[Rfam]
RNA sequence: UCCAGCAGUGGUAGCUCUCCAGGCGGCAUCAUGCCUGUGAAGGUGUUGUACUGCUGGGAGAGGAAUGCCCUGUCUUCUUCCUCCAGUUGCUCCCUGCACUGAUCUGGUGACAUGGGGCACUGGUGCAAGGCAGAACUGUGCUUCCGUGAGAGCGAGCUAAGCACUACUUUGGCUGCUUAGGUCUAGAGUGGGAGCAGACACA
Number, nucleotide and partner (000 for none) at each position: 001u058002c057003c056004a055005g054006c053007a052008g051009u050010g000011g049012u048013a000014g044015c043016u042017c000018u040019c039020c037021a036022g035023g034024c033025g000026g000027c000028a000029u000030c000031a000032u000033g024034c023035c022036u021037g020038u000039g019040a018041a000042g016043g015044u014045g000046u000047u000048g012049u011050a009051c008052u007053g006054c005055u004056g003057g002058g001059a000060g000061a000062g000063g000064a000065a000066u000067g136068c000069c000070c133071u132072g131073u130074c129075u128076u000077c000078u000079u000080c000081c000082u000083c000084c125085a124086g000087u122088u119089g118090c117091u116092c115093c114094c000095u112096g111097c109098a108099c107100u106101g000102a000103u000104c000105u000106g100107g099108u098109g097110a000111c096112a095113u000114g093115g092116g091117g090118c089119a088120c000121u000122g087123g000124u085125g084126c000127a000128a075129g074130g073131c072132a071133g070134a000135a000136c067137u000138g000139u196140g195141c194142u193143u192144c191145c190146g000147u000148g000149a000150g000151a000152g000153c000154g183155a182156g000157c000158u179159a178160a177161g176162c175163a174164c000165u000166a000167c000168u000169u000170u000171g000172g000173c000174u163175g162176c161177u160178u159179a158180g000181g000182u155183c154184u000185a000186g000187a000188g000189u000190g145191g144192g143193a142194g141195c140196a139197g000198a000199c000200a000201c000202a000